[Rfam]
RNA sequence: GUGAAGACAGCAGGAGAGUGGCAAGACCAUUUUGGUCACCGCCCGCCGAAGAAGUAAGUUCCCCAUCCCGUUUGAAACCCUUUCAGACAAUGGCGAGUAAAUCUUUCAGGCACCUUACUGAUUGCUCUGU
Numbered sequence: 001g002u003g004a005a006g007a008c009a010g011c012a013g014g015a016g017a018g019u020g021g022c023a024a025g026a027c028c029a030u031u032u033u034g035g036u037c038a039c040c041g042c043c044c045g046c047c048g049a050a051g052a053a054g055u056a057a058g059u060u061c062c063c064c065a066u067c068c069c070g071u072u073u074g075a076a077a078c079c080c081u082u083u084c085a086g087a088c089a090a091u092g093g094c095g096a097g098u099a100a101a102u103c104u105u106u107c108a109g110g111c112a113c114c115u116u117a118c119u120g121a122u123u124g125c126u127c128u129g130u
Base pairs, nucleotide, nucleotide: 006125009122011120012119013118020043021042022041045111046110047109048107049106052105053104054103058098059097060096061095

Background
This 130-nucleotide RNA sequence from Photobacterium aphoticum belongs to the Rfam family "Glycine riboswitch aptamer". Rfam describes the family as follows. This family represents the bacterial glycine riboswitch.